RNA sequence: ACUUUGCACUUGAGUAUAGGUCGGAGUGACUGGCUGAAGAAGACCUUAAUUGGUCCUAGAACGGCCUGAGGUGGAGGGGUUUUAGUCGGUAGGUCCGAGGACUUCUUCCUCGGGAAUCCGACACUACCCAGUCGUACGGACGGCUGAGUGUCUUUUGAAGAUUUCCCCUCUUCCACGAAA
Numbered sequence: 001a002c003u004u005u006g007c008a009c010u011u012g013a014g015u016a017u018a019g020g021u022c023g024g025a026g027u028g029a030c031u032g033g034c035u036g037a038a039g040a041a042g043a044c045c046u047u048a049a050u051u052g053g054u055c056c057u058a059g060a061a062c063g064g065c066c067u068g069a070g071g072u073g074g075a076g077g078g079g080u081u082u083u084a085g086u087c088g089g090u091a092g093g094u095c096c097g098a099g100g101a102c103u104u105c106u107u108c109c110u111c112g113g114g115a116a117u118c119c120g121a122c123a124c125u126a127c128c129c130a131g132u133c134g135u136a137c138g139g140a141c142g143g144c145u146g147a148g149u150g151u152c153u154u155u156u157g158a159a160g161a162u163u164u165c166c167c168c169u170c171u172u173c174c175a176c177g178a179a180a
Stems, first nucleotide, its partner, number of pairs: 002042003050179002053176002070174002073171002076167003085122005094114008124150001128146001
RNA: R2 RNA element
Organism: Agrilus planipennis